[Rfam]
Overview: The record is a 398-nucleotide part of an RNA from Schizosaccharomyces octosporus, which matches "Eukaryotic large subunit ribosomal RNA" in Rfam. The sequence is in the family's curated seed alignment.
RNA sequence: GAAGUGUCGUCGCAAUGGUAAUUCAACUUAGUACGAGAGGAACCGUUGAUUCAGAUCAUUGGUAUUUGCGGCUGCCUGACAAGGCAAUGCCGCGGAGCUAUCAUCUGCUGGAUAAAGGCUGAACGCCUCUAAGCCCGAAUCCAUGCCAGAAGCGACGAUUUGUUGGUCCGCAUAAUUAAUGUGUAUACAAAUAGAGUUUUUAAACUCCUGCAUCAUAGAAGAUGGGCGUCGGUUGAUAAGACGGAAGUUGUCUUGUUGACUUGUCCAUGAAAUUCCAUUGAAAACUUGUGCGGAGUCGAAUCCAUUGCAUACGACUUUAAUGUGAACGGGGUAUGUAAGCAGUAGAGUAGCCUUGUUGUUACGAUCUGCUGAGAUUAAGCCUUUGUUCCAAGAUUUGU
Numbered sequence: 001g002a003a004g005u006g007u008c009g010u011c012g013c014a015a016u017g018g019u020a021a022u023u024c025a026a027c028u029u030a031g032u033a034c035g036a037g038a039g040g041a042a043c044c045g046u047u048g049a050u051u052c053a054g055a056u057c058a059u060u061g062g063u064a065u066u067u068g069c070g071g072c073u074g075c076c077u078g079a080c081a082a083g084g085c086a087a088u089g090c091c092g093c094g095g096a097g098c099u100a101u102c103a104u105c106u107g108c109u110g111g112a113u114a115a116a117g118g119c120u121g122a123a124c125g126c127c128u129c130u131a132a133g134c135c136c137g138a139a140u141c142c143a144u145g146c147c148a149g150a151a152g153c154g155a156c157g158a159u160u161u162g163u164u165g166g167u168c169c170g171c172a173u174a175a176u177u178a179a180u181g182u183g184u185a186u187a188c189a190a191a192u193a194g195a196g197u198u199u200u201u202a203a204a205c206u207c208c209u210g211c212a213u214c215a216u217a218g219a220a221g222a223u224g225g226g227c228g229u230c231g232g233u234u235g236a237u238a239a240g241a242c243g244g245a246a247g248u249u250g251u252c253u254u255g256u257u258g259a260c261u262u263g264u265c266c267a268u269g270a271a272a273u274u275c276c277a278u279u280g281a282a283a284a285c286u287u288g289u290g291c292g293g294a295g296u297c298g299a300a301u302c303c304a305u306u307g308c309a310u311a312c313g314a315c316u317u318u319a320a321u322g323u324g325a326a327c328g329g330g331g332u333a334u335g336u337a338a339g340c341a342g343u344a345g346a347g348u349a350g351c352c353u354u355g356u357u358g359u360u361a362c363g364a365u366c367u368g369c370u371g372a373g374a375u376u377a378a379g380c381c382u383u384u385g386u387u388c389c390a391a392g393a394u395u396u397g398u
Base pairs, nucleotide, nucleotide: 006159007158008157009156010155011154012153013152016148017147018146019145021051023049024048025047026046027045052107053106054105055104056103060100061099062098067094068093069092070091071090073086074085075084076083077082109143110142111141117135118134119133120132167294168293169292170291171290172289173288298396299395300394301393302392304318307315324388325387326386327385328384329382330381331380333375334374339369340368341367342366344365347362348361349360350359351358